[Rfam]
RNA sequence: ACUCAGGCACGAUUCAUCCGCAGUCAGCUGGGUGAAAGCGACCUGAAGUUCAAUCCUGAGGGA
Numbered sequence: 001a002c003u004c005a006g007g008c009a010c011g012a013u014u015c016a017u018c019c020g021c022a023g024u025c026a027g028c029u030g031g032g033u034g035a036a037a038g039c040g041a042c043c044u045g046a047a048g049u050u051c052a053a054u055c056c057u058g059a060g061g062g063a
Base pairs, nucleotide, nucleotide: 001049002048003047004045005044006043007042013036014035015034016033017032018031019030020028021027

A member of the RNA family "L31-Corynebacteriaceae ribosomal protein leader" from Corynebacterium vitaeruminis, 63 nucleotides long. It is one of the family's seed sequences. The source organism's lineage runs through Bacteria, Actinomycetota, Mycobacteriales, Corynebacteriaceae and Corynebacterium. Rfam classes the family as a cis-regulatory leader.